[Rfam]
RNA sequence: GACACAAACUUGAAGUACAGUAGUUUAGUGGGGUUAGCCGAUCCUACCAGACUAUCCUACUUCAAAUUUGUGCCC
Numbered sequence: 001g002a003c004a005c006a007a008a009c010u011u012g013a014a015g016u017a018c019a020g021u022a023g024u025u026u027a028g029u030g031g032g033g034u035u036a037g038c039c040g041a042u043c044c045u046a047c048c049a050g051a052c053u054a055u056c057c058u059a060c061u062u063c064a065a066a067u068u069u070g071u072g073c074c075c
Stems, first nucleotide, its partner, number of pairs: 001074001003072006011064007020055004025050002028047003032043004

The family of this 75-nucleotide RNA from Haemonchus placei is "mir-5928 microRNA precursor family".
Pairs were carried over by alignment from the consensus structure, which was predicted with RNAalifold.
Rfam 15.1 lists 1,672 matches to the family in 12 species.
The organism belongs to Haemonchus, within Eukaryota.